[Rfam]
RNA: c-di-GMP-I riboswitch aptamer
RNA sequence: CACGACAAACGGCAAACUAAGUGAAAGCUUAGGACGCAAAACUAGAGGGUCUAAGUCUUAAUUGAUAUGACAGCCAGUUAUCGAA
Numbered sequence: 001c002a003c004g005a006c007a008a009a010c011g012g013c014a015a016a017c018u019a020a021g022u023g024a025a026a027g028c029u030u031a032g033g034a035c036g037c038a039a040a041a042c043u044a045g046a047g048g049g050u051c052u053a054a055g056u057c058u059u060a061a062u063u064g065a066u067a068u069g070a071c072a073g074c075c076a077g078u079u080a081u082c083g084a085a
Base pairs, nucleotide, nucleotide: 012037013036017032018031019030020029021028022027040079041078042077043076047075048074049071050070051069056065057064